[Rfam]
RNA: ffh sRNA
RNA sequence: AAGGCCGGGGAUCGCCAUCCGUCAGCGCGUUGCGCCCACGGGUGCCGUUGUC
Numbered sequence: 001a002a003g004g005c006c007g008g009g010g011a012u013c014g015c016c017a018u019c020c021g022u023c024a025g026c027g028c029g030u031u032g033c034g035c036c037c038a039c040g041g042g043u044g045c046c047g048u049u050g051u052c
Stems, first nucleotide, its partner, number of pairs: 016044007025035004